[Rfam]
RNA sequence: ACACAACAUGAAGAGUAACUGAAUUAGGUUCACCAACCUGCAAAUGUAAGGUGGUUUCCUCAAGGGCAUGUGACCGUAAGGUAAUAUACAUGCCUCCUUC
Number, nucleotide and partner (000 for none) at each position: 001a000002c000003a000004c000005a000006a071007c070008a069009u068010g067011a000012a000013g000014a000015g031016u000017a030018a029019c028020u027021g000022a000023a000024u000025u000026a000027g020028g019029u018030u017031c015032a055033c054034c053035a000036a000037c051038c050039u049040g047041c046042a000043a000044a095045u000046g041047u040048a000049a039050g038051g037052u000053g034054g033055u032056u000057u000058c000059c000060u000061c000062a000063a000064g000065g000066g000067c010068a009069u008070g007071u006072g000073a082074c081075c080076g000077u000078a000079a000080g075081g074082u073083a000084a000085u000086a000087u000088a000089c000090a000091u000092g000093c000094c000095u044096c000097c000098u000099u000100c000

Shown here is a 100-nucleotide RNA sequence, a member of the family "SAM-I/IV (S-adenosyl methionine) riboswitch aptamer". Its Rfam clan is "SAM clan". Rfam 15.1 lists 567 matches to the family in 508 species. Its family is annotated with regulation of gene expression and S-adenosylmethionine metabolic process in the Gene Ontology. The family's consensus secondary structure is taken from published work.